[Rfam]
RNA sequence: GUCGGGUUCGGGAUGAAGUGGUUGAUCUUCCCGCCGAACACCGCGUAGGUGCGCUUCCCGUCGGUGAGCAUCUGCACGCCGCGCUGGCGGAACUCCUU
Numbered sequence: 001g002u003c004g005g006g007u008u009c010g011g012g013a014u015g016a017a018g019u020g021g022u023u024g025a026u027c028u029u030c031c032c033g034c035c036g037a038a039c040a041c042c043g044c045g046u047a048g049g050u051g052c053g054c055u056u057c058c059c060g061u062c063g064g065u066g067a068g069c070a071u072c073u074g075c076a077c078g079c080c081g082c083g084c085u086g087g088c089g090g091a092a093c094u095c096c097u098u
Stems, first nucleotide, its partner, number of pairs: 006039006014033002018029001020027002043054004079090004
Rfam assigns this 98-nucleotide sequence from Mycolicibacterium phlei to the family "Mycobacterium sRNA Ms_AS-1". On this family, see Li et al., RNA 2013: "Identification of small RNAs in Mycobacterium smegmatis using heterologous Hfq". NCBI's taxonomy places the organism under Bacteria, Actinomycetes, Mycobacteriaceae, Mycobacterium (subgen. Mycolicibacterium), Mycolicibacterium phlei. It scores 99 bits against the family's covariance model. The base pairs follow the family's consensus structure. By type it is a small RNA.